This 106-nucleotide RNA sequence from Cuscuta campestris belongs to the Rfam family "Small nucleolar RNA snoR97". It is annotated as an H/ACA-box small nucleolar RNA. Its family is annotated with RNA processing and nucleolus in the Gene Ontology. Lineage of the source: Eukaryota > Streptophytina > Gunneridae > Cuscuta > Cuscuta sect. Cleistogrammica. For this family Rfam cites "Experimental RNomics: identification of 140 candidates for small non-messenger RNAs in the plant Arabidopsis thaliana" (Marker et al., Curr Biol, 2002).

RNA sequence: UGUUACUGGUUUGGAUUGCAGACUGAAGACUCAAAGAUUGAGUGCUGUCCAUCACCUCCUAUCUUAGGAUAUCAAUUGGAAUGGAGUCAAAUAUAGCACAAUAGAC
Numbered sequence: 001u002g003u004u005a006c007u008g009g010u011u012u013g014g015a016u017u018g019c020a021g022a023c024u025g026a027a028g029a030c031u032c033a034a035a036g037a038u039u040g041a042g043u044g045c046u047g048u049c050c051a052u053c054a055c056c057u058c059c060u061a062u063c064u065u066a067g068g069a070u071a072u073c074a075a076u077u078g079g080a081a082u083g084g085a086g087u088c089a090a091a092u093a094u095a096g097c098a099c100a101a102u103a104g105a106c
Stems, first nucleotide, its partner, number of pairs: 042099006054087001056086004062080003